RNA sequence: UCGAGCUCCCCACGUGGCGCUAUCUCGGGAAACUCCCCCAGGGCAGAAAUGCAGCAAGGGUACUCGGGCUCUGGCGGGUGCGUGGGGAGUCUUACUU
Numbered sequence: 001u002c003g004a005g006c007u008c009c010c011c012a013c014g015u016g017g018c019g020c021u022a023u024c025u026c027g028g029g030a031a032a033c034u035c036c037c038c039c040a041g042g043g044c045a046g047a048a049a050u051g052c053a054g055c056a057a058g059g060g061u062a063c064u065c066g067g068g069c070u071c072u073g074g075c076g077g078g079u080g081c082g083u084g085g086g087g088a089g090u091c092u093u094a095c096u097u
Stems, first nucleotide, its partner, number of pairs: 005090010015078001018076005024068006035060003043052003
Annotation
Bacterial small signal recognition particle RNA: a 97-nucleotide sequence from Leucobacter triazinivorans. The signal recognition particle (SRP) is a universally conserved ribonucleoprotein involved in the co-translational targeting of proteins to membranes. The family's RNA type in Rfam is non-coding RNA gene. The match comes from Rfam's covariance-model search (58 bits). Pairs were carried over by alignment from the consensus structure, which is taken from published work.